[Rfam]
RNA: Ribosomal protein L20 leader
Organism: Caloramator fervidus
RNA sequence: AGGUAUAAGUAGAAGCCAUCCGCUUCUCACCUUACGCCUAUGGCAGUAAGGUUCUUCGUAAAAGCUAUUGGUGUAACUAUGCGGAUGGGCUACCAUCCGCUUUUUGUUUUGUAA
Numbered sequence: 001a002g003g004u005a006u007a008a009g010u011a012g013a014a015g016c017c018a019u020c021c022g023c024u025u026c027u028c029a030c031c032u033u034a035c036g037c038c039u040a041u042g043g044c045a046g047u048a049a050g051g052u053u054c055u056u057c058g059u060a061a062a063a064g065c066u067a068u069u070g071g072u073g074u075a076a077c078u079a080u081g082c083g084g085a086u087g088g089g090c091u092a093c094c095a096u097c098c099g100c101u102u103u104u105u106g107u108u109u110u111g112u113a114a
Stems, first nucleotide, its partner, number of pairs: 011027006029052003034047002036044002081100008